This 120-nucleotide sequence from Rhodopseudomonas palustris belongs to the Rfam family "Bradyrhizobiaceae sRNA BjrC174". For this family Rfam cites "Small RNAs of the Bradyrhizobium/Rhodopseudomonas lineage and their analysis" (Madhugiri et al., RNA Biol, 2012). By type it is a small RNA.

RNA sequence: UGCGUUGGCCCGGUCCUUUCGGUCUCGGAUUCCUCAGCCCCCAGCCCCCCGAGGCGGUCGGGAUCGGGCCUUUCGCAGCAGCCAAAUCCCCAUACUGGACCAACGCGAGUUGGUCCUUUU
Numbered sequence: 001u002g003c004g005u006u007g008g009c010c011c012g013g014u015c016c017u018u019u020c021g022g023u024c025u026c027g028g029a030u031u032c033c034u035c036a037g038c039c040c041c042c043a044g045c046c047c048c049c050c051g052a053g054g055c056g057g058u059c060g061g062g063a064u065c066g067g068g069c070c071u072u073u074c075g076c077a078g079c080a081g082c083c084a085a086a087u088c089c090c091c092a093u094a095c096u097g098g099a100c101c102a103a104c105g106c107g108a109g110u111u112g113g114u115c116c117u118u119u120u
Stems, first nucleotide, its partner, number of pairs: 001077004007070011020057001022055007037045002097116008